[Rfam]
A member of the RNA family "Alphaproteobacteria transfer-messenger RNA" from Magnetospirillum sp. UT-4, 316 nucleotides long. For this family Rfam cites "tmRDB (tmRNA database)" (Zwieb et al., Nucleic Acids Res, 2003). It is annotated as a non-coding RNA gene. A search with the family's covariance model found it, with a score of 261 bits. Rfam links the family to the GO term RNA catabolic process.
RNA sequence: GCACUGGCGAUUCCCUUGCGGGUGCAUUAUAUUGAUCGCGCCGGGUAGCACCCGGCUAUGGCGCUAAACGCUAUGUGGAAUAGGCCUUGCGGACCCGGGGGCGGUACCCGGCGCCUCCACCAAAUUCCGGAAUUACGGCCGGAGAAUGGGGGCGAAACAGGAUCGACGCGGGUAGUAAAGACAUGGUUUGCGCUCGGCAUGGUACCACCGUUAUCGGGCUAAACCUCACAAGUGCCAACGACAACGUUGCUCUUGCCGCUGCGGCGUAAUCCGUAAGCGCGGUCCGGGGGGCACCGGGCAACAGAAGCCCCCCACU
Numbered sequence: 001g002c003a004c005u006g007g008c009g010a011u012u013c014c015c016u017u018g019c020g021g022g023u024g025c026a027u028u029a030u031a032u033u034g035a036u037c038g039c040g041c042c043g044g045g046u047a048g049c050a051c052c053c054g055g056c057u058a059u060g061g062c063g064c065u066a067a068a069c070g071c072u073a074u075g076u077g078g079a080a081u082a083g084g085c086c087u088u089g090c091g092g093a094c095c096c097g098g099g100g101g102c103g104g105u106a107c108c109c110g111g112c113g114c115c116u117c118c119a120c121c122a123a124a125u126u127c128c129g130g131a132a133u134u135a136c137g138g139c140c141g142g143a144g145a146a147u148g149g150g151g152g153c154g155a156a157a158c159a160g161g162a163u164c165g166a167c168g169c170g171g172g173u174a175g176u177a178a179a180g181a182c183a184u185g186g187u188u189u190g191c192g193c194u195c196g197g198c199a200u201g202g203u204a205c206c207a208c209c210g211u212u213a214u215c216g217g218g219c220u221a222a223a224c225c226u227c228a229c230a231a232g233u234g235c236c237a238a239c240g241a242c243a244a245c246g247u248u249g250c251u252c253u254u255g256c257c258g259c260u261g262c263g264g265c266g267u268a269a270u271c272c273g274u275a276a277g278c279g280c281g282g283u284c285c286g287g288g289g290g291g292c293a294c295c296g297g298g299c300a301a302c303a304g305a306a307g308c309c310c311c312c313c314a315c316u
Base pairs, nucleotide, nucleotide: 040056041055042054043053044052060194061193062192063191064190070187071186072185073184074183075182076181085172086171087170089169090168091167095111096110097109098108099107112154113153114152115151116150117149118148195210196209197208200221201220202219205217206216280296281295282294283293286313287312288311289310290309291308